[Rfam]
RNA: Small nucleolar RNA snoR100
RNA sequence: GGACUAUGGAAGUAUGGUAAUGGGCACAGAAAUUGAUUUGGGUCUCUAGGCUUGCCCUCACUAAUGCCUUUUGGCUUUGGUUUGGGGGCAUAGUUCCACAGCAACACGU
Numbered sequence: 001g002g003a004c005u006a007u008g009g010a011a012g013u014a015u016g017g018u019a020a021u022g023g024g025c026a027c028a029g030a031a032a033u034u035g036a037u038u039u040g041g042g043u044c045u046c047u048a049g050g051c052u053u054g055c056c057c058u059c060a061c062u063a064a065u066g067c068c069u070u071u072u073g074g075c076u077u078u079g080g081u082u083u084g085g086g087g088g089c090a091u092a093g094u095u096c097c098a099c100a101g102c103a104a105c106a107c108g109u
Stems, first nucleotide, its partner, number of pairs: 012025002015022001040091001042089003050081003054075003